UnaL2 LINE 3' element: a 54-nucleotide RNA from Megalops atlanticus. Rfam 15.1 lists 493,311 matches to the family in 99 species. The family's consensus secondary structure is taken from published work. The eel long interspersed element (LINE) UnaL2 and its partner short interspersed element (SINE) share a conserved 3' tail containing a stem-loop that is critical for their retrotransposition. Presumably, the first step of retrotransposition is the recognition of their 3' tails by UnaL2-encoded reverse transcriptase. The solution structure of a 17-nucleotide RNA derived from the 3' tail of UnaL2 was determined by NMR.

RNA sequence: ACCUGUAAUUGAUGUAAGUCGCUUUGAAUAAGAGCGUCUGCUAAAUGCCAAUAA
Numbered sequence: 001a002c003c004u005g006u007a008a009u010u011g012a013u014g015u016a017a018g019u020c021g022c023u024u025u026g027a028a029u030a031a032g033a034g035c036g037u038c039u040g041c042u043a044a045a046u047g048c049c050a051a052u053a054a
Stems, first nucleotide, its partner, number of pairs: 013043001014041003020036006
Dot-bracket structure: ............((((...((((((.....))))))..))).)...........
Description: The organism belongs to Megalops, within Eukaryota.